[Rfam]
RNA sequence: CUCCCGGGCAACCGUGGCUUUAGAUUGUUACUGUGGGGACACGGGCUGGUAACAGUCUACAGCCAUGGUUGCCCAGAGCGG
Numbered sequence: 001c002u003c004c005c006g007g008g009c010a011a012c013c014g015u016g017g018c019u020u021u022a023g024a025u026u027g028u029u030a031c032u033g034u035g036g037g038g039a040c041a042c043g044g045g046c047u048g049g050u051a052a053c054a055g056u057c058u059a060c061a062g063c064c065a066u067g068g069u070u071g072c073c074c075a076g077a078g079c080g081g
Stems, first nucleotide, its partner, number of pairs: 012068002015065004023057010
Rfam assigns this 81-nucleotide RNA sequence from Pogona vitticeps to the family "mir-132 microRNA precursor family". Its family is annotated with miRNA-mediated post-transcriptional gene silencing and RISC complex in the Gene Ontology. NCBI's taxonomy places the organism under Eukaryota, Bilateria, Sauropsida, Episquamata, Pogona. The family's consensus secondary structure was predicted with RNAalifold. Rfam 15.1 lists 1,023 matches to the family in 386 species.